[Rfam]
NiCo (Nickel/Cobalt) riboswitch aptamer: a 106-nucleotide RNA from Marinilactibacillus sp. 15R.
RNA sequence: CCAUUGUGAUCUGAACAAGCUGUAAAUAUAUAAAACUCAUGCAGCUGUGCUACGAUUUUUAUGGCAGCAAAAUGUAACAUUCAAAGGGUAUUUCUGUGGGACAAUU
Dot-bracket structure: ...........((..(.((((((.(.(.......).).))..))))..((((.........)))).(((.((...................)).)))..).))...
Clan: NiCo_riboswitches. It scores 38 bits against the family's covariance model. For this family Rfam cites "Bacterial riboswitches cooperatively bind Ni(2+) or Co(2+) ions and control expression of heavy metal transporters" (Furukawa et al., Mol Cell, 2015). NCBI's taxonomy places the organism under Bacteria, Bacilli, Lactobacillales, Carnobacteriaceae, Marinilactibacillus.